[Rfam]
The family of this 86-nucleotide RNA from Hydrogenophaga taeniospiralis is "Burkholderia RNA 7 (anti-hemB)".
RNA sequence: CCUCCCGCUUUUCCUCCCUGAGCGGGUGCCUUAGUGUGUGACAGCAAAAAGGCUUCCCAACCCGGCCCACGGCCGGGUUCUUUUUU
Numbered sequence: 001c002c003u004c005c006c007g008c009u010u011u012u013c014c015u016c017c018c019u020g021a022g023c024g025g026g027u028g029c030c031u032u033a034g035u036g037u038g039u040g041a042c043a044g045c046a047a048a049a050a051g052g053c054u055u056c057c058c059a060a061c062c063c064g065g066c067c068c069a070c071g072g073c074c075g076g077g078u079u080c081u082u083u084u085u086u
Stems, first nucleotide, its partner, number of pairs: 004026006028053005060078008
For this family Rfam cites "Identification of 22 candidate structured RNAs in bacteria using the CMfinder comparative genomics pipeline" (Weinberg et al., Nucleic Acids Res, 2007). Rfam describes the family as follows. This RNA motif was identified by computational search in b-proteobacteria Burkholderia. Co-purified with Hfq, expression confirmed by Northern blot.